[Rfam]
RNA sequence: AGCCGGGCCUUGUGCAACGGAGAAUCACGAACCCCGCCAGGUCCGGGAGGAAGCAACGGUAGUGACACUCUUCGUGUGUUACAGGUAACCCGGCUAUC
Numbered sequence: 001a002g003c004c005g006g007g008c009c010u011u012g013u014g015c016a017a018c019g020g021a022g023a024a025u026c027a028c029g030a031a032c033c034c035c036g037c038c039a040g041g042u043c044c045g046g047g048a049g050g051a052a053g054c055a056a057c058g059g060u061a062g063u064g065a066c067a068c069u070c071u072u073c074g075u076g077u078g079u080u081a082c083a084g085g086u087a088a089c090c091c092g093g094c095u096a097u098c
Stems, first nucleotide, its partner, number of pairs: 004092004009085006015076001017075006025065004034059003042051003
Background: The family of this 98-nucleotide RNA sequence from Desulfobulbus sp. Tol-SR is "Bacterial small signal recognition particle RNA". Lineage of the source: Bacteria > Pseudomonadati > Desulfobulbia > Desulfobulbales > Desulfobulbus. The family's RNA type in Rfam is non-coding RNA gene. About the family: The signal recognition particle (SRP) is a universally conserved ribonucleoprotein involved in the co-translational targeting of proteins to membranes. It scores 70 bits against the family's covariance model.